[Rfam]
RNA: L31-Firmicutes ribosomal protein leader
RNA sequence: CUCUGUGCGAAGGCACGGCAGGGCAGAAGGAG
Numbered sequence: 001c002u003c004u005g006u007g008c009g010a011a012g013g014c015a016c017g018g019c020a021g022g023g024c025a026g027a028a029g030g031a032g
Stems, first nucleotide, its partner, number of pairs: 001023005006015003